[Rfam]
RNA sequence: UCACAAAUUCAAGGCCAUGGCAGAAGCACCCACAGCAUGGCCCUGUCAGAUUCCAGUGAAUCUGUAAAUUUUGCU
Numbered sequence: 001u002c003a004c005a006a007a008u009u010c011a012a013g014g015c016c017a018u019g020g021c022a023g024a025a026g027c028a029c030c031c032a033c034a035g036c037a038u039g040g041c042c043c044u045g046u047c048a049g050a051u052u053c054c055a056g057u058g059a060a061u062c063u064g065u066a067a068a069u070u071u072u073g074c075u
Stems, first nucleotide, its partner, number of pairs: 013042004019075007026038001047064007
A member of the RNA family "Mammalian CPEB3 ribozyme" from Alligator sinensis, 75 nucleotides long.
Pairs were carried over by alignment from the consensus structure, which is taken from published work.
Taxonomically the source falls in Alligator (Eukaryota, Opisthokonta, Sauria, Alligatorinae).